[Rfam]
RNA sequence: GUGGCUUCAAAUAUUGAUUUUAUUAAUGCUUGCAUAUUUUUGUAUGUGUUUGCAAUUUUUAAUUGAAGCCUAUAAUUGUGUUCCCCUCGCUAUCCACUACUUCAAUUUUAUGAUGUAAUUGGACGUCGGGGUACAAAAUUU
Numbered sequence: 001g002u003g004g005c006u007u008c009a010a011a012u013a014u015u016g017a018u019u020u021u022a023u024u025a026a027u028g029c030u031u032g033c034a035u036a037u038u039u040u041u042g043u044a045u046g047u048g049u050u051u052g053c054a055a056u057u058u059u060u061a062a063u064u065g066a067a068g069c070c071u072a073u074a075a076u077u078g079u080g081u082u083c084c085c086c087u088c089g090c091u092a093u094c095c096a097c098u099a100c101u102u103c104a105a106u107u108u109u110a111u112g113a114u115g116u117a118a119u120u121g122g123a124c125g126u127c128g129g130g131g132u133a134c135a136a137a138a139u140u141u
Stems, first nucleotide, its partner, number of pairs: 001073002003070003008065003012061002016058002019055002028053002034049003080134002083131004088125002093123004102113003
RNA: Small nucleolar RNA snoR136